Rfam assigns this 117-nucleotide RNA from Hibiscus trionum to the family "Small nucleolar RNA snoR104". The family's consensus secondary structure was predicted with WAR. A search with the family's covariance model found it, with a score of 101 bits. Rfam 15.1 lists 612 matches to the family in 228 species.
RNA sequence: GGGAAGCAUCAAAGAGAUGAGAUGUUUCCCGAUACAAUCUUCCUAGAAAAAUUCUAAUGUUUCCUGCUUGUAGUACUCGAGCAAGUUUCUGCAAGUCACAAACCUCCAGAGACAUGA
Numbered sequence: 001g002g003g004a005a006g007c008a009u010c011a012a013a014g015a016g017a018u019g020a021g022a023u024g025u026u027u028c029c030c031g032a033u034a035c036a037a038u039c040u041u042c043c044u045a046g047a048a049a050a051a052u053u054c055u056a057a058u059g060u061u062u063c064c065u066g067c068u069u070g071u072a073g074u075a076c077u078c079g080a081g082c083a084a085g086u087u088u089c090u091g092c093a094a095g096u097c098a099c100a101a102a103c104c105u106c107c108a109g110a111g112a113c114a115u116g117a
Stems, first nucleotide, its partner, number of pairs: 001030003005026006053110003066096008075086003